[Rfam]
RNA: drz-agam-2-2 ribozyme
Organism: Anopheles gambiae
RNA sequence: AUUAGUUAUGCUCUGCAAUGGGAUGGGAUGCGAAACCCCUCAAGGGAUAAUACAGGUUCUCCCAUCCAACUCCUAUUCCGACACGUCCUCGUCGUGCAGAGUGGCAACGUGUGCCAUCACUUAUCCAAGUUUGGGUACACGGGCUUGACCCAACCCCUUGGGCGGAUGGUGGGAUAUGGCGAACCAAGAGGGG
Numbered sequence: 001a002u003u004a005g006u007u008a009u010g011c012u013c014u015g016c017a018a019u020g021g022g023a024u025g026g027g028a029u030g031c032g033a034a035a036c037c038c039c040u041c042a043a044g045g046g047a048u049a050a051u052a053c054a055g056g057u058u059c060u061c062c063c064a065u066c067c068a069a070c071u072c073c074u075a076u077u078c079c080g081a082c083a084c085g086u087c088c089u090c091g092u093c094g095u096g097c098a099g100a101g102u103g104g105c106a107a108c109g110u111g112u113g114c115c116a117u118c119a120c121u122u123a124u125c126c127a128a129g130u131u132u133g134g135g136u137a138c139a140c141g142g143g144c145u146u147g148a149c150c151c152a153a154c155c156c157c158u159u160g161g162g163c164g165g166a167u168g169g170u171g172g173g174a175u176a177u178g179g180c181g182a183a184c185c186a187a188g189a190g191g192g193g
Stems, first nucleotide, its partner, number of pairs: 010102007021067008031055001071193004076189002083095003087104002108178005115171004123167004131153006155162002